[Rfam]
Shown here is a 115-nucleotide RNA from Trifolium medium, a member of the family "MIR2593 microRNA precursor family".
Taxonomically the source falls in Trifolium (Eukaryota, Magnoliopsida, fabids, Fabaceae).
RNA sequence: CUAUAAGUAAAAGUUCGCUUUUCAGAUUCAUUGAAUAACUGAUGUAUUUGCUCUAUAAUGUAUACCAGAUUCAUCAGUUACUCAAUGAAUCUGAAAAGUUGACUUUUAUUUAUAA
Numbered sequence: 001c002u003a004u005a006a007g008u009a010a011a012a013g014u015u016c017g018c019u020u021u022u023c024a025g026a027u028u029c030a031u032u033g034a035a036u037a038a039c040u041g042a043u044g045u046a047u048u049u050g051c052u053c054u055a056u057a058a059u060g061u062a063u064a065c066c067a068g069a070u071u072c073a074u075c076a077g078u079u080a081c082u083c084a085a086u087g088a089a090u091c092u093g094a095a096a097a098g099u100u101g102a103c104u105u106u107u108a109u110u111u112a113u114a115a
Base pairs, nucleotide, nucleotide: 002114003113004112005111006110007109009107010106011105012104013103015101017099018098019097020096021095022094023093024092025091027089028088029087030086031085032084033083034082036080037079038078039077040076041075042074043073044072049067050066052064